[Rfam]
RNA: Small nucleolar RNA SNORD56
RNA sequence: CUGCAAUGAUGGGAGUAUUUUUCCUUAAUAGUAGUUCACCUAGUGAGUGUUGAUACUUUGUGUCUGAGUGA
Numbered sequence: 001c002u003g004c005a006a007u008g009a010u011g012g013g014a015g016u017a018u019u020u021u022u023c024c025u026u027a028a029u030a031g032u033a034g035u036u037c038a039c040c041u042a043g044u045g046a047g048u049g050u051u052g053a054u055a056c057u058u059u060g061u062g063u064c065u066g067a068g069u070g071a
Stems, first nucleotide, its partner, number of pairs: 002070003008026002011023001